RNA sequence: GCUCUGUGAUGAACCCCAUGCGUGUCAUCUGAGCCUGGCUUCCCUGUCAGCUCAGCCCAGGUAGUGUUCUACUUCUCAGGGCUGUUGUCUGGCCUUGCAAGGGGCUCACAGGCAAAGGAUCAAUCUUUGUAUUCUGAGAGC
Numbered sequence: 001g002c003u004c005u006g007u008g009a010u011g012a013a014c015c016c017c018a019u020g021c022g023u024g025u026c027a028u029c030u031g032a033g034c035c036u037g038g039c040u041u042c043c044c045u046g047u048c049a050g051c052u053c054a055g056c057c058c059a060g061g062u063a064g065u066g067u068u069c070u071a072c073u074u075c076u077c078a079g080g081g082c083u084g085u086u087g088u089c090u091g092g093c094c095u096u097g098c099a100a101g102g103g104g105c106u107c108a109c110a111g112g113c114a115a116a117g118g119a120u121c122a123a124u125c126u127u128u129g130u131a132u133u134c135u136g137a138g139a140g141c
Stems, first nucleotide, its partner, number of pairs: 001141004042103004048097003
RNA: Small nucleolar RNA SNORD10
Organism: Sus scrofa